The family of this 599-nucleotide part of an RNA is "Eukaryotic large subunit ribosomal RNA".

RNA sequence: AGGGAAGUCGGCAAAAUGGAUCCGUAACCUCGGGACAAGGAUUGGCUCUAAGGGUUGGGCCCAGGGCUUUGGUCGCGGAAGGGGUAGAGCCCGCGGGAUCCUGGACCGCGUGAGGCUGCGGCUGGGCUGCGCUGUGACUACUGCCGUGCGGCGUCAAAACCGUGCGGUGGGAAAGUGGUGCCCUGGCUUGCGGCUUUGCGCGGGCCUCCCGCUGGGAGCUCCCUGGCAAGUGGCCAGAGAAUAUAUAGAGUCGUGGUGGGCGGGGCUUCACGGUCUCGUCUGGCCAUGGCCCUAAUGCCCUGUCUCCAUGCUGGGGUGGUGGUAUAAAAGCCAUCAUCCCGGUGGCAAUUAACAACCGACUUAGAACUGGUACGGACAAGGGGAAUCCGACUGUUUAAUUAAAACAUAGCAUUGCGAUGGGCCGGCGAGCGGUGUUGACGCAAUGUGAUUUCUGCCCAGUGCUCUGAAUGUCAAAGUGAAGAGAUUCAACCAAGCGCGGGUAAACGGCGGGAGUAACUAUGACUCUCUUAAGGUAGCCAAAUGCCUCGUCAUCUAAUUAGUGACGCGCAUGAAUGGAUUAACGAGAUUCCCACUGUCCC
Numbered sequence: 001a002g003g004g005a006a007g008u009c010g011g012c013a014a015a016a017u018g019g020a021u022c023c024g025u026a027a028c029c030u031c032g033g034g035a036c037a038a039g040g041a042u043u044g045g046c047u048c049u050a051a052g053g054g055u056u057g058g059g060c061c062c063a064g065g066g067c068u069u070u071g072g073u074c075g076c077g078g079a080a081g082g083g084g085u086a087g088a089g090c091c092c093g094c095g096g097g098a099u100c101c102u103g104g105a106c107c108g109c110g111u112g113a114g115g116c117u118g119c120g121g122c123u124g125g126g127c128u129g130c131g132c133u134g135u136g137a138c139u140a141c142u143g144c145c146g147u148g149c150g151g152c153g154u155c156a157a158a159a160c161c162g163u164g165c166g167g168u169g170g171g172a173a174a175g176u177g178g179u180g181c182c183c184u185g186g187c188u189u190g191c192g193g194c195u196u197u198g199c200g201c202g203g204g205c206c207u208c209c210c211g212c213u214g215g216g217a218g219c220u221c222c223c224u225g226g227c228a229a230g231u232g233g234c235c236a237g238a239g240a241a242u243a244u245a246u247a248g249a250g251u252c253g254u255g256g257u258g259g260g261c262g263g264g265g266c267u268u269c270a271c272g273g274u275c276u277c278g279u280c281u282g283g284c285c286a287u288g289g290c291c292c293u294a295a296u297g298c299c300c301u302g303u304c305u306c307c308a309u310g311c312u313g314g315g316g317u318g319g320u321g322g323u324a325u326a327a328a329a330g331c332c333a334u335c336a337u338c339c340c341g342g343u344g345g346c347a348a349u350u351a352a353c354a355a356c357c358g359a360c361u362u363a364g365a366a367c368u369g370g371u372a373c374g375g376a377c378a379a380g381g382g383g384a385a386u387c388c389g390a391c392u393g394u395u396u397a398a399u400u401a402a403a404a405c406a407u408a409g410c411a412u413u414g415c416g417a418u419g420g421g422c423c424g425g426c427g428a429g430c431g432g433u434g435u436u437g438a439c440g441c442a443a444u445g446u447g448a449u450u451u452c453u454g455c456c457c458a459g460u461g462c463u464c465u466g467a468a469u470g471u472c473a474a475a476g477u478g479a480a481g482a483g484a485u486u487c488a489a490c491c492a493a494g495c496g497c498g499g500g501u502a503a504a505c506g507g508c509g510g511g512a513g514u515a516a517c518u519a520u521g522a523c524u525c526u527c528u529u530a531a532g533g534u535a536g537c538c539a540a541a542u543g544c545c546u547c548g549u550c551a552u553c554u555a556a557u558u559a560g561u562g563a564c565g566c567g568c569a570u571g572a573a574u575g576g577a578u579u580a581a582c583g584a585g586a587u588u589c590c591c592a593c594u595g596u597c598c599c
Stems, first nucleotide, its partner, number of pairs: 002598003019043005028033001044368002047365006053357005059346003065340002068159003072155001074153002081145002083142005091134001093132003097128001099126003103122001106121005369373001381591007388583002392406003409446008421433004450577003454508003459505002461501004466497001469496003477488004509527006528532001548564005
Dot-bracket structure: .(((..............(((((....(....).....)))))((.(((((((((((.(((...((.(((.(.((.....(((((((...(.(((.(.(((.(..(((((......)))))).))).).))).)...))))).))......)).).)))...................................................................................................................................................................................))...)))......)))))..)))))).))(...).......(((((((((..(((.........)))..((((((((....((((.....)))).....))))))))...(((.(((..((((((.(..(((.....((((....)))).....))))))))..)))))((((((.......))))))(...)...............(((((.......)))))..........)))....)).)))))))....))).
A search with the family's covariance model found it, with a score of 2865 bits. Rfam links the family to the GO terms structural constituent of ribosome and ribosome.